[Rfam]
Source information:
This 96-nucleotide RNA from Propionispira arboris belongs to the Rfam family "Glycine riboswitch aptamer". Rfam describes the family as follows. This family represents the bacterial glycine riboswitch.
RNA sequence: GGACGGGACUCUGGAGAGUGCUCUUAAUUGAGACGCCGAAGGUGAAAGCGGAUUGUAAUCUGUAAAUCUCUCAGGCAAAUGGACAGAGACAGGCAU
Dot-bracket structure: ......(.(((((.......(((......)))..(((((..(.(...((((........))))....).))).))).......))))).)......
Numbered sequence: 001g002g003a004c005g006g007g008a009c010u011c012u013g014g015a016g017a018g019u020g021c022u023c024u025u026a027a028u029u030g031a032g033a034c035g036c037c038g039a040a041g042g043u044g045a046a047a048g049c050g051g052a053u054u055g056u057a058a059u060c061u062g063u064a065a066a067u068c069u070c071u072c073a074g075g076c077a078a079a080u081g082g083a084c085a086g087a088g089a090c091a092g093g094c095a096u
Stems, first nucleotide, its partner, number of pairs: 007090001009088005021032003035076003038072002042070001044068001048063004